Description: Shown here is a 193-nucleotide RNA from Mauremys mutica, a member of the family "U2 spliceosomal RNA". It is annotated as a spliceosomal small nuclear RNA. The literature on the family includes a 2001 paper in RNA by Berglund et al., "Crystal structure of a model branchpoint-U2 snRNA duplex containing bulged adenosines". The source organism's lineage runs through Eukaryota, Sarcopterygii, Tetrapoda, Sauria and Mauremys. Rfam describes the family as follows. U2 is a small nuclear RNA (snRNA) component of the spliceosome (involved in pre-mRNA splicing). Complementary binding between U2 snRNA (in an area lying towards the 5' end but 3' to hairpin I) and the branchpoint sequence (BPS) of the intron results the bulging out of an unpaired adenosine, on the BPS, which initiates a nucleophilic attack at the intronic 5' splice site, thus starting the first of two transesterification reactions that mediate splicing. Clan: U2 clan.

RNA sequence: AUCGCUUCUCGGCUCCUUGAAGCUAAGAUCAAGCGUAGUGUCAGUUCUUAUCAGUUUAAUAUCUGAUAGGUCCUUUAUUUGAGGAUUGUAUAUUAAAUUGAUUUUUGAAAUAAGGGGAUGGAAUAGGAGCUUGCUCUGUCCACCCUAUGCAUUGACCUGGUAUUGCAGUGUCUCCAGGACCAGUGCCUCUCCU
Numbered sequence: 001a002u003c004g005c006u007u008c009u010c011g012g013c014u015c016c017u018u019g020a021a022g023c024u025a026a027g028a029u030c031a032a033g034c035g036u037a038g039u040g041u042c043a044g045u046u047c048u049u050a051u052c053a054g055u056u057u058a059a060u061a062u063c064u065g066a067u068a069g070g071u072c073c074u075u076u077a078u079u080u081g082a083g084g085a086u087u088g089u090a091u092a093u094u095a096a097a098u099u100g101a102u103u104u105u106u107g108a109a110a111u112a113a114g115g116g117g118a119u120g121g122a123a124u125a126g127g128a129g130c131u132u133g134c135u136c137u138g139u140c141c142a143c144c145c146u147a148u149g150c151a152u153u154g155a156c157c158u159g160g161u162a163u164u165g166c167a168g169u170g171u172c173u174c175c176a177g178g179a180c181c182a183g184u185g186c187c188u189c190u191c192c193u
Base pairs, nucleotide, nucleotide: 007028008027009026011024012023013022014021049068050067051066052065053064054063070086071085072084073083074082075081114146115145116144117143120140121139126137127136128135129134149186150185151184152183153182154181156178157177158176159175160174